[Rfam]
RNA sequence: UUAAGUUAAUCAUAUAAAAUAUUUCAUCGUCUUUAAUUAUACACAUCUACCUCAUUAGAAAACGUUUGAAGCUUUACGGCUCAUGGAGAUGAAUGUGUAUAACUAAAGUAGAUGACAUAUUUUGUGUGGUUAACUUAACU
Numbered sequence: 001u002u003a004a005g006u007u008a009a010u011c012a013u014a015u016a017a018a019a020u021a022u023u024u025c026a027u028c029g030u031c032u033u034u035a036a037u038u039a040u041a042c043a044c045a046u047c048u049a050c051c052u053c054a055u056u057a058g059a060a061a062a063c064g065u066u067u068g069a070a071g072c073u074u075u076a077c078g079g080c081u082c083a084u085g086g087a088g089a090u091g092a093a094u095g096u097g098u099a100u101a102a103c104u105a106a107a108g109u110a111g112a113u114g115a116c117a118u119a120u121u122u123u124g125u126g127u128g129g130u131u132a133a134c135u136u137a138a139c140u
Stems, first nucleotide, its partner, number of pairs: 001138022024115002028111001031108005037102010049090001051088002